[Rfam]
Z30 small nucleolar RNA: a 93-nucleotide RNA sequence from Nothobranchius furzeri. The source organism's lineage runs through Eukaryota, Eumetazoa, Euteleostomi, Cyprinodontiformes and Nothobranchius. It is annotated as a C/D-box small nucleolar RNA. Rfam links the family to the GO terms nucleolus and RNA processing. The match comes from Rfam's covariance-model search (62 bits).

RNA sequence: CUGCAAUGAUGAUUUUAAUACAACUGACCUGGAAUUGCUGAUCUCUGGGUCAGCUCUGUCCAGGAAAUGACCGUUGUUUUUGUCUCUGAGCAG
Numbered sequence: 001c002u003g004c005a006a007u008g009a010u011g012a013u014u015u016u017a018a019u020a021c022a023a024c025u026g027a028c029c030u031g032g033a034a035u036u037g038c039u040g041a042u043c044u045c046u047g048g049g050u051c052a053g054c055u056c057u058g059u060c061c062a063g064g065a066a067a068u069g070a071c072c073g074u075u076g077u078u079u080u081u082g083u084c085u086c087u088g089a090g091c092a093g
Stems, first nucleotide, its partner, number of pairs: 003091002037054004